[Rfam]
RNA sequence: CGCACUGCGUGGUAUCUGCAUCCAACUGCUUCUCCAGUUAGAUUGUUCAUUAGUCAGUGCAAGAGCGACUCUACAUAUGGCAUCGUUGGUCUCCAAGCUUUUUUAUGUGUGUCUGUAGACCUGGUAUUUCUGCUGAGACAAAG
Numbered sequence: 001c002g003c004a005c006u007g008c009g010u011g012g013u014a015u016c017u018g019c020a021u022c023c024a025a026c027u028g029c030u031u032c033u034c035c036a037g038u039u040a041g042a043u044u045g046u047u048c049a050u051u052a053g054u055c056a057g058u059g060c061a062a063g064a065g066c067g068a069c070u071c072u073a074c075a076u077a078u079g080g081c082a083u084c085g086u087u088g089g090u091c092u093c094c095a096a097g098c099u100u101u102u103u104u105a106u107g108u109g110u111g112u113c114u115g116u117a118g119a120c121c122u123g124g125u126a127u128u129u130c131u132g133c134u135g136a137g138a139c140a141a142a143g
Stems, first nucleotide, its partner, number of pairs: 002060006014054002018046003023041001024039005064131002067128002070124002079113005
Dot-bracket structure: .((((((......((..(((..((((((......))))).)..)))......))))))))...((.((.((.......(((((.........................))))).........))..)).))............
The family of this 143-nucleotide RNA from Esox lucius is "Small nucleolar RNA SNORA8". Rfam's curators write: ACA8 is a member of the H/ACA class of snoRNA that guide the sites of modification of uridines to pseudouridines. Rfam 15.1 lists 1,490 matches to the family in 610 species.